[Rfam]
RNA sequence: UCGUAAGUCGGUGCAUGGCACUAGGCCUGCAGCGGCGAGCUUCGUUCGUCCCAUAUGGAUGUGACGAAGUUUCACCAGAAAAAGGAA
Numbered sequence: 001u002c003g004u005a006a007g008u009c010g011g012u013g014c015a016u017g018g019c020a021c022u023a024g025g026c027c028u029g030c031a032g033c034g035g036c037g038a039g040c041u042u043c044g045u046u047c048g049u050c051c052c053a054u055a056u057g058g059a060u061g062u063g064a065c066g067a068a069g070u071u072u073c074a075c076c077a078g079a080a081a082a083a084g085g086a087a
Stems, first nucleotide, its partner, number of pairs: 007036004012031004018026002037072010047061005
Rfam assigns this 87-nucleotide sequence from Pseudomonas protegens to the family "gyrA RNA". The family's consensus secondary structure is taken from published work. By type it is a cis-regulatory element. The source organism's lineage runs through Bacteria, Pseudomonadati, Pseudomonadales, Pseudomonadaceae and Pseudomonas protegens.